[Rfam]
Nucleotides: 093
Stems, first nucleotide, its partner, number of pairs: 001093001003091005013042005021031003025082004043074004048070002052065003078085001
Number, partner (000 for none) and nucleotide at each position: 001093u002000a003091a004090c005089u006088a007087u008000a009000a010000a011000g012000a013042g014041a015040a016039g017038g018000g019000g020000a021031g022030a023029g024000a025082a026081a027080a028079g029023c030022u031021c032000g033000a034000u035000g036000a037000a038017c039016c040015u041014u042013c043074a044073g045072c046071a047000a048070c049069u050000u051000a052065c053064c054063u055000u056000u057000g058000a059000a060000a061000u062000a063054a064053g065052g066000c067000a068000a069049a070048g071046u072045g073044c074043u075000a076000a077000a078085a079028c080027u081026u082025u083000u084000a085078u086000g087007a088006u089005a090004g091003u092000g093001a
Shown here is a 93-nucleotide RNA from Mycoplasmopsis edwardii, a member of the family "SAM riboswitch aptamer (S box leader)". The SAM riboswitch is found upstream of a number of genes which code for proteins involved in methionine or cysteine biosynthesis in Gram-positive bacteria. A search with the family's covariance model found it, with a score of 60 bits.